[Rfam]
RNA sequence: UUAAUUUCAUAUAGGAAAACUCGUAUAAAUUCGGGAAUAUGGCCCGAAAGUCUCUACCCAGAAACCGUAAAUUUUUGGACUACGAGAAGAUAAGUACGGCAG
Numbered sequence: 001u002u003a004a005u006u007u008c009a010u011a012u013a014g015g016a017a018a019a020c021u022c023g024u025a026u027a028a029a030u031u032c033g034g035g036a037a038u039a040u041g042g043c044c045c046g047a048a049a050g051u052c053u054c055u056a057c058c059c060a061g062a063a064a065c066c067g068u069a070a071a072u073u074u075u076u077g078g079a080c081u082a083c084g085a086g087a088a089g090a091u092a093a094g095u096a097c098g099g100c101a102g
Base pairs, nucleotide, nucleotide: 020086021085022084023083024082025081030048031047032046033045034044035043058078059077060076061075062074063073064072